A member of the RNA family "Small nucleolar RNA MBII-202" from Chanos chanos, 81 nucleotides long. On this family, see Huttenhofer et al., EMBO J 2001: "RNomics: an experimental approach that identifies 201 candidates for novel, small, non-messenger RNAs in mouse". A search with the family's covariance model found it, with a score of 64 bits. Rfam 15.1 lists 745 matches to the family in 452 species. The source organism's lineage runs through Eukaryota, Eumetazoa, Euteleostomi, Gonorynchiformes and Chanos. Rfam classes the family as a C/D-box small nucleolar RNA. Rfam links the family to the GO terms RNA processing and nucleolus. The base pairs follow the family's consensus structure, which was predicted with PFOLD.
[Rfam]
RNA sequence: UGAUGACAAUUUCUCCGGAAUCUCUGCACUAUGUUGAUGACUUUUUGAACCCUUUUCCAGCUGAUGACUGCACAGAUCAGU
Numbered sequence: 001u002g003a004u005g006a007c008a009a010u011u012u013c014u015c016c017g018g019a020a021u022c023u024c025u026g027c028a029c030u031a032u033g034u035u036g037a038u039g040a041c042u043u044u045u046u047g048a049a050c051c052c053u054u055u056u057c058c059a060g061c062u063g064a065u066g067a068c069u070g071c072a073c074a075g076a077u078c079a080g081u
Base pairs, nucleotide, nucleotide: 002081004079005078006077